[Rfam]
Shown here is a 45-nucleotide sequence from Candidatus Thiodictyon syntrophicum, a member of the family "Acido-Lenti-1 RNA". It is annotated as a small RNA.

RNA sequence: CCCAGGGCUUUGCCCUGGGCUGGUAUGUGGCGCCCCUUCGGGGCU
Numbered sequence: 001c002c003c004a005g006g007g008c009u010u011u012g013c014c015c016u017g018g019g020c021u022g023g024u025a026u027g028u029g030g031c032g033c034c035c036c037u038u039c040g041g042g043g044c045u
Base pairs, nucleotide, nucleotide: 001019002018003017004016005015006014007013008012032044033043034042035041036040